[Rfam]
RNA: tRNA
RNA sequence: GGGCGGUUGGCUCAGUGGUUAGAGCGCCUCGUUCACACCGAGGAGGUCGUUGGUUCAAAUCCAUCACCGCCCA
Numbered sequence: 001g002g003g004c005g006g007u008u009g010g011c012u013c014a015g016u017g018g019u020u021a022g023a024g025c026g027c028c029u030c031g032u033u034c035a036c037a038c039c040g041a042g043g044a045g046g047u048c049g050u051u052g053g054u055u056c057a058a059a060u061c062c063a064u065c066a067c068c069g070c071c072c073a
Base pairs, nucleotide, nucleotide: 001072002071003070004069005068006067007066010025011024012023013022027043028042029041030040031039049065051063052062053061